Annotation: The family of this 76-nucleotide sequence from Angiostrongylus costaricensis is "mir-44 microRNA precursor family". Its family is annotated with miRNA-mediated post-transcriptional gene silencing and RISC complex in the Gene Ontology. The family's consensus secondary structure was predicted with RNAalifold.

RNA sequence: AGUUUUCUGAUCUGGAUGUUCCUCUGAGUCGUACACGAUGUGAUAUGACUAGAGACACAUUCAGCUUGGAUAUGUG
Numbered sequence: 001a002g003u004u005u006u007c008u009g010a011u012c013u014g015g016a017u018g019u020u021c022c023u024c025u026g027a028g029u030c031g032u033a034c035a036c037g038a039u040g041u042g043a044u045a046u047g048a049c050u051a052g053a054g055a056c057a058c059a060u061u062c063a064g065c066u067u068g069g070a071u072a073u074g075u076g
Stems, first nucleotide, its partner, number of pairs: 006070004012064008023054001027050007